[Rfam]
RNA sequence: CAUUCGCUCUCGGGGCGCCUCUUUUGGCUGAGAUGUAGUAAUACAAACCCGUAGAACCUGAUCCGACUAGUAUCGGCGUAGGAAUGAGCAGCACAUCCUCA
Number, nucleotide and partner (000 for none) at each position: 001c000002a000003u000004u000005c000006g089007c088008u087009c086010u000011c051012g050013g049014g048015g000016c000017g028018c027019c026020u000021c000022u000023u000024u000025u000026g019027g018028c017029u000030g000031a000032g000033a000034u000035g044036u043037a042038g000039u000040a000041a000042u037043a036044c035045a000046a000047a000048c014049c013050c012051g011052u000053a000054g000055a000056a000057c082058c081059u080060g079061a000062u000063c076064c075065g074066a073067c000068u000069a000070g000071u000072a000073u066074c065075g064076g063077c000078g000079u060080a059081g058082g057083a000084a000085u000086g009087a008088g007089c006090a000091g000092c000093a000094c000095a000096u000097c000098c000099u000100c000101a000
RNA: TPP riboswitch aptamer (THI element)
Organism: Paraglaciecola mesophila